[Rfam]
RNA sequence: CCGUCCGCCUCGUGAUCGUCUUCUCAGCCUUCACCGGCGGGCGUGUACAGCGGAGGACCCCCGUGAGGACGUGACUCACGGGGGUCCUUC
Numbered sequence: 001c002c003g004u005c006c007g008c009c010u011c012g013u014g015a016u017c018g019u020c021u022u023c024u025c026a027g028c029c030u031u032c033a034c035c036g037g038c039g040g041g042c043g044u045g046u047a048c049a050g051c052g053g054a055g056g057a058c059c060c061c062c063g064u065g066a067g068g069a070c071g072u073g074a075c076u077c078a079c080g081g082g083g084g085u086c087c088u089u090c
Stems, first nucleotide, its partner, number of pairs: 002043008012034004018028002052090016
Overview
A member of the RNA family "sodF sRNA" from Streptomyces lavendulae, 90 nucleotides long. For this family Rfam cites "Inverse regulation of Fe- and Ni-containing SOD genes by a Fur family regulator Nur through small RNA processed from 3'UTR of the sodF mRNA" (Kim et al., Nucleic Acids Res, 2014). The pairing is the family consensus, mapped onto this sequence. By type it is a small RNA.